[Rfam]
RNA: Histone 3' UTR stem-loop
Organism: Polypterus senegalus
RNA sequence: CCAAAGGCUCUUUUCAGAGCCACCCACAUAUUCCACAUGGAGAGCU
Numbered sequence: 001c002c003a004a005a006g007g008c009u010c011u012u013u014u015c016a017g018a019g020c021c022a023c024c025c026a027c028a029u030a031u032u033c034c035a036c037a038u039g040g041a042g043a044g045c046u
Stems, first nucleotide, its partner, number of pairs: 006021006